[Rfam]
RNA sequence: CUGCACCGCUGGGGGUGCCCGGCAGCGCCAAUGCUGCACGGGCUGAGACAGUCCCUUUGAACCUGAUUGAGAUCAUCCUCGCGCAGGGAAGCCCGCCCCUCAUUUC
Numbered sequence: 001c002u003g004c005a006c007c008g009c010u011g012g013g014g015g016u017g018c019c020c021g022g023c024a025g026c027g028c029c030a031a032u033g034c035u036g037c038a039c040g041g042g043c044u045g046a047g048a049c050a051g052u053c054c055c056u057u058u059g060a061a062c063c064u065g066a067u068u069g070a071g072a073u074c075a076u077c078c079u080c081g082c083g084c085a086g087g088g089a090a091g092c093c094c095g096c097c098c099c100u101c102a103u104u105u106c
Stems, first nucleotide, its partner, number of pairs: 008092003011056004016050001017043005062087004068081004

This 106-nucleotide sequence from Acidovorax carolinensis belongs to the Rfam family "TPP riboswitch aptamer (THI element)". Taxonomically the source falls in Acidovorax (Bacteria, Pseudomonadati, Burkholderiales, Comamonadaceae). The base pairs follow the family's consensus structure, which is taken from published work. The match comes from Rfam's covariance-model search (57 bits). Its family is annotated with thiamine pyrophosphate binding in the Gene Ontology.